[Rfam]
RNA sequence: CUCUGGAGAGAAUCCCGAUAUUCGGGAUCACCAACGGGGAAACUUGCAGCCGAACAACGCCACGGCAGAUGCAAGGCAACUCUCAGGUACCCAGGACAGAG
Numbered sequence: 001c002u003c004u005g006g007a008g009a010g011a012a013u014c015c016c017g018a019u020a021u022u023c024g025g026g027a028u029c030a031c032c033a034a035c036g037g038g039g040a041a042a043c044u045u046g047c048a049g050c051c052g053a054a055c056a057a058c059g060c061c062a063c064g065g066c067a068g069a070u071g072c073a074a075g076g077c078a079a080c081u082c083u084c085a086g087g088u089a090c091c092c093a094g095g096a097c098a099g100a101g
Base pairs, nucleotide, nucleotide: 001101002100003099004098005097012028013027014026015025030088031087032086034083037082038081039080043075044074045073046072047071048070
RNA: Glycine riboswitch aptamer
Organism: Cohnella pontilimi